[Rfam]
RNA sequence: UCUCCAACAAAUGGAUAAGACUUGGUCUUAGUGUAUAGGAGUUUUUGAAAAUAGAAUAGAUAAAUAUAAGGAGCAAUAAACUCUUUCUUGUUUUAUCAAGAGGGGUUAUUGCUCCUUAAU
Numbered sequence: 001u002c003u004c005c006a007a008c009a010a011a012u013g014g015a016u017a018a019g020a021c022u023u024g025g026u027c028u029u030a031g032u033g034u035a036u037a038g039g040a041g042u043u044u045u046u047g048a049a050a051a052u053a054g055a056a057u058a059g060a061u062a063a064a065u066a067u068a069a070g071g072a073g074c075a076a077u078a079a080a081c082u083c084u085u086u087c088u089u090g091u092u093u094u095a096u097c098a099a100g101a102g103g104g105g106u107u108a109u110u111g112c113u114c115c116u117u118a119a120u
Stems, first nucleotide, its partner, number of pairs: 001014002052118001068117012081104003086101004
RNA: Plastid-psbA-1 3UTR RNA